[Rfam]
RNA sequence: AUACUUACCUGGCAGGGGAGACACCAUGAUCAUGAAGGUGGUUUGCCCAGGGUGAGGCUCGUCCAUUGCACUCUGGGUGUGCUGACCCCUGCAAUUUCCUCAAAUGCAGGAAACUCAACUGCAUAAUUUGUAGUAGUGGGGGACUGCAUUCGCACUUUCCCCCC
Numbered sequence: 001a002u003a004c005u006u007a008c009c010u011g012g013c014a015g016g017g018g019a020g021a022c023a024c025c026a027u028g029a030u031c032a033u034g035a036a037g038g039u040g041g042u043u044u045g046c047c048c049a050g051g052g053u054g055a056g057g058c059u060c061g062u063c064c065a066u067u068g069c070a071c072u073c074u075g076g077g078u079g080u081g082c083u084g085a086c087c088c089c090u091g092c093a094a095u096u097u098c099c100u101c102a103a104a105u106g107c108a109g110g111a112a113a114c115u116c117a118a119c120u121g122c123a124u125a126a127u128u129u130g131u132a133g134u135a136g137u138g139g140g141g142g143a144c145u146g147c148a149u150u151c152g153c154a155c156u157u158u159c160c161c162c163c164c
Stems, first nucleotide, its partner, number of pairs: 012122004016048003020044002023042005049090004054086001056083003060079005094115001095113003099109002138163006146155001

The family of this 164-nucleotide RNA from Salvator merianae is "U1 spliceosomal RNA".
It scores 143 bits against the family's covariance model.
The source organism's lineage runs through Eukaryota, Opisthokonta, Dipnotetrapodomorpha, Laterata and Salvator.
The family is grouped with related families in Rfam's "U1 clan".